RNA: Glycine riboswitch aptamer
RNA sequence: GGCCGAUGCGUGGGAGAGCCCGUCCGGCCAGCCGGCGGCACCGAAGGAGCAACCGCCCCGGAAUCUCUCAGGUACAAGGGACCGCGUAUCGGCA
Dot-bracket structure: .....((((((((......((((...........)))).(((((..(((...((.....))...))))).)))........)))))))).....